[Rfam]
RNA: Y RNA
Organism: Erinaceus europaeus
RNA sequence: GGCUGGUCCAGUGGGAGUGGGUUCUCAGAAAAUUUAUUAGUGUUUGUGUCACUGAAGUUUGUAAACCCCUGUCCACACUGCUGAGUUUGACUGGUUUAAA
Numbered sequence: 001g002g003c004u005g006g007u008c009c010a011g012u013g014g015g016a017g018u019g020g021g022u023u024c025u026c027a028g029a030a031a032a033u034u035u036a037u038u039a040g041u042g043u044u045u046g047u048g049u050c051a052c053u054g055a056a057g058u059u060u061g062u063a064a065a066c067c068c069c070u071g072u073c074c075a076c077a078c079u080g081c082u083g084a085g086u087u088u089g090a091c092u093g094g095u096u097u098a099a100a
Base pairs, nucleotide, nucleotide: 001096002095003094004093005092006091007090008089010088011087016079017078018077019076020074021073027062030059031058